[Rfam]
RNA: t44 RNA
RNA sequence: GGUUUGUAAAACUAAACACACACAUACAUCGACACAUGCGCCGGGGUGCCUUCAAAGGUCGGAACAUGGGAUGUAUGGAGGCUUAAC
Number, nucleotide and partner (000 for none) at each position: 001g000002g000003u000004u000005u000006g000007u000008a000009a000010a000011a000012c000013u000014a000015a000016a000017c000018a000019c000020a000021c000022a000023c077024a076025u075026a074027c073028a072029u071030c070031g000032a000033c000034a000035c068036a067037u066038g065039c000040g000041c062042c061043g060044g000045g000046g000047u000048g059049c058050c057051u056052u000053c000054a000055a000056a051057g050058g049059u048060c043061g042062g041063a000064a000065c038066a037067u036068g035069g000070g030071a029072u028073g027074u026075a025076u024077g023078g000079a000080g000081g000082c000083u000084u000085a000086a000087c000